[Rfam]
Shown here is a 123-nucleotide RNA sequence from Streptococcus mitis, a member of the family "Streptococcus sRNA SpR19". The source organism's lineage runs through Bacteria, Bacillati, Bacillota, Bacilli and Streptococcus mitis. On this family, see Mann et al., PLoS Pathog 2012: "Control of virulence by small RNAs in Streptococcus pneumoniae".
Nucleotides: 123
Stems, first nucleotide, its partner, number of pairs: 001113002003110005008104002016071001018069001021066003025062004031056002038049002074091005
Number, partner (000 for none) and nucleotide at each position: 001113g002112c003110g004109u005108u006107c007106u008104u009103c010000a011000a012000g013000c014000g015000a016071a017000c018069u019000u020000g021066g022065g023064a024000u025062a026061g027060u028059g029000g030000g031056a032055g033000c034000c035000a036000a037000g038049u039048a040000g041000g042000g043000c044000a045000a046000a047000a048039u049038a050000a051000a052000g053000a054000a055032c056031u057000g058000g059028c060027g061026c062025u063000u064023u065022c066021u067000g068000u069018a070000a071016u072000a073000u074091u075090u076089u077088u078087a079000a080000a081000a082000a083000c084000a085000a086000a087078u088077g089076a090075a091074g092000u093000a094000a095000u096000a097000a098000a099000u100000u101000a102000g103009g104008g105000u106007g107006g108005a109004a110003c111000c112002g113001c114000g115000u116000u117000u118000c119000u120000g121000a122000c123000g